Small nucleolar RNA psi18S-1377: a 128-nucleotide RNA from Tribolium castaneum. The family has 15 seed sequences and 113 matches in Rfam 15.1. The family's RNA type in Rfam is H/ACA-box small nucleolar RNA. Pairs were carried over by alignment from the consensus structure, which was predicted with RNAalifold. Rfam's curators write: psi18S-1377 is a member of the H/ACA class of snoRNA. This family is responsible for guiding the modification of uridines 1377 and 1279 to pseudouridine in Drosophila 18S rRNA. Gene Ontology terms of the family: nucleolus and RNA processing. The source organism's lineage runs through Eukaryota, Pterygota, Polyphaga, Tenebrionidae and Tribolium.
RNA sequence: UCGUCUCUGUGUUACUUGAAUAACAAAAUCGAUUUGUAUUCGAGCGUCAAAAGAGACGAAAAUUAAUUCUUGUUUUUCCACAAGUUAAUGUGUUGGCAUAUUUAACUUACUAAAAGCAAGAAACAUUG
Numbered sequence: 001u002c003g004u005c006u007c008u009g010u011g012u013u014a015c016u017u018g019a020a021u022a023a024c025a026a027a028a029u030c031g032a033u034u035u036g037u038a039u040u041c042g043a044g045c046g047u048c049a050a051a052a053g054a055g056a057c058g059a060a061a062a063u064u065a066a067u068u069c070u071u072g073u074u075u076u077u078c079c080a081c082a083a084g085u086u087a088a089u090g091u092g093u094u095g096g097c098a099u100a101u102u103u104a105a106c107u108u109a110c111u112a113a114a115a116g117c118a119a120g121a122a123a124c125a126u127u128g
Stems, first nucleotide, its partner, number of pairs: 002058006010049002016043007082108005089100004